[Rfam]
RNA sequence: UGCAAUGAUGGUGUAAUUUGCGUCUUACCUGUUAUUCAGUGACGGUUGCCUGCUGUCAUUAAGCUGGUGCCGAGGGCUGACGAUAAAACAAGUCUGAGCA
Numbered sequence: 001u002g003c004a005a006u007g008a009u010g011g012u013g014u015a016a017u018u019u020g021c022g023u024c025u026u027a028c029c030u031g032u033u034a035u036u037c038a039g040u041g042a043c044g045g046u047u048g049c050c051u052g053c054u055g056u057c058a059u060u061a062a063g064c065u066g067g068u069g070c071c072g073a074g075g076g077c078u079g080a081c082g083a084u085a086a087a088a089c090a091a092g093u094c095u096g097a098g099c100a
Base pairs, nucleotide, nucleotide: 001100002099003098021082022081023080024079030072031071033069034068039064040063041057042056043055044054045053
RNA: Small nucleolar RNA SNORD16